[Rfam]
RNA sequence: GCGUAACAUUGCGCGCGAUUUAGUAACAAGAGGACACACACUUUGGACAGUCACAGUCGAUACCGAACGGAGUUUUCACUGUAACUAUCGCCCGUCUCACUUAUCGGCGAUAGUUUCG
Dot-bracket structure: (((((....)))))...........(((.((((((...(..(((((...(((......))).)))))..).))))))..)))((((((((((.............))))))))))...

This 118-nucleotide RNA sequence from Aggregatibacter actinomycetemcomitans belongs to the Rfam family "Aggregatibacter sRNA 54". The family's consensus secondary structure was predicted with RNAfold. Rfam classes the family as a small RNA. Rfam's curators put it in the seed alignment. NCBI's taxonomy places the organism under Bacteria, Pseudomonadota, Gammaproteobacteria, Pasteurellaceae, Aggregatibacter actinomycetemcomitans.